[Rfam]
RNA sequence: GCACGGAUGGCCGAGUGGUCUAAGGCGCCAGACUCAAGCAUACGCUUGUCGCGAGAUAGCGGACGGGGCAUUCUGGUUCUCGUACGAGAGCGUGGGUUCAAAUCCCACUCCGUGCA
Numbered sequence: 001g002c003a004c005g006g007a008u009g010g011c012c013g014a015g016u017g018g019u020c021u022a023a024g025g026c027g028c029c030a031g032a033c034u035c036a037a038g039c040a041u042a043c044g045c046u047u048g049u050c051g052c053g054a055g056a057u058a059g060c061g062g063a064c065g066g067g068g069c070a071u072u073c074u075g076g077u078u079c080u081c082g083u084a085c086g087a088g089a090g091c092g093u094g095g096g097u098u099c100a101a102a103u104c105c106c107a108c109u110c111c112g113u114g115c116a
Stems, first nucleotide, its partner, number of pairs: 001115007010026003028076005092108005

tRNA: a 116-nucleotide RNA from Haemonchus placei.